[Rfam]
RNA sequence: UUCAACUGAAUAUCCAAACCAAAGACAGCAGGUGGUUUACCCCUUAAUGUCCUGCCGAGGUUUGAUUUUUCCAGACACAUUCAUUGUGUUCUAAAGAAAUCAUUCACACUCGGCUUUUAACUAGGUCGAGUGUUUUGUUUUUGGAUA
Numbered sequence: 001u002u003c004a005a006c007u008g009a010a011u012a013u014c015c016a017a018a019c020c021a022a023a024g025a026c027a028g029c030a031g032g033u034g035g036u037u038u039a040c041c042c043c044u045u046a047a048u049g050u051c052c053u054g055c056c057g058a059g060g061u062u063u064g065a066u067u068u069u070u071c072c073a074g075a076c077a078c079a080u081u082c083a084u085u086g087u088g089u090u091c092u093a094a095a096g097a098a099a100u101c102a103u104u105c106a107c108a109c110u111c112g113g114c115u116u117u118u119a120a121c122u123a124g125g126u127c128g129a130g131u132g133u134u135u136u137g138u139u140u141u142u143g144g145a146u147a
Base pairs, nucleotide, nucleotide: 028055029054030053031052032051034043035042107132108131109130110129111128112127113126114125115124116123
The family of this 147-nucleotide sequence from Leptolyngbya sp. NIES-3755 is "Ribosomal protein L10 leader". A search with the family's covariance model found it, with a score of 71 bits. This family is a putative r-protein leader autoregulatory structure found in B. subtilis and other low-GC Gram-positive bacteria. It is located in the 5' untranslated regions of mRNAs encoding ribosomal proteins L10 and L12 (rplJ-rplL). The family's RNA type in Rfam is cis-regulatory leader. Pairs were carried over by alignment from the consensus structure, which was predicted with CMfinder. For this family Rfam cites "Diverse mechanisms for regulating ribosomal protein synthesis in Escherichia coli" (Zengel and Lindahl, Prog Nucleic Acid Res Mol Biol, 1994).